[Rfam]
RNA sequence: GGGUCCGGUGGGCCGCUGACCUCCUAAAAGAACCGGGGGAAAGAACUACCCGCCCACCCACCCUCCCCGCCGGAGAGGCCGCGUCACUCGUGCGGGUGACCGGCUUGCAGGUGCGGGAUUCGGGCGGUUACGUUCACCGCGACAAGCUCGACAACCGCAAACAGAUACGGCCCCCGGCCGGGAGUGGCUUCCCGAACGAGGGCCUCACCGAUCAGGAAGCUAGACCUUCCCA
Dot-bracket structure: ......(.(((((.(....................................................))))............((((((....)))))).............(..((................))..)..............................(((((.((...((((......))))...)).)))))....)).)..(((((......)))))..
Numbered sequence: 001g002g003g004u005c006c007g008g009u010g011g012g013c014c015g016c017u018g019a020c021c022u023c024c025u026a027a028a029a030g031a032a033c034c035g036g037g038g039g040a041a042a043g044a045a046c047u048a049c050c051c052g053c054c055c056a057c058c059c060a061c062c063c064u065c066c067c068c069g070c071c072g073g074a075g076a077g078g079c080c081g082c083g084u085c086a087c088u089c090g091u092g093c094g095g096g097u098g099a100c101c102g103g104c105u106u107g108c109a110g111g112u113g114c115g116g117g118a119u120u121c122g123g124g125c126g127g128u129u130a131c132g133u134u135c136a137c138c139g140c141g142a143c144a145a146g147c148u149c150g151a152c153a154a155c156c157g158c159a160a161a162c163a164g165a166u167a168c169g170g171c172c173c174c175c176g177g178c179c180g181g182g183a184g185u186g187g188c189u190u191c192c193c194g195a196a197c198g199a200g201g202g203c204c205u206c207a208c209c210g211a212u213c214a215g216g217a218a219g220c221u222a223g224a225c226c227u228u229c230c231c232a
Stems, first nucleotide, its partner, number of pairs: 007212001009210002011071003015068001084099006113138001116135002169204005175198002180193004215230005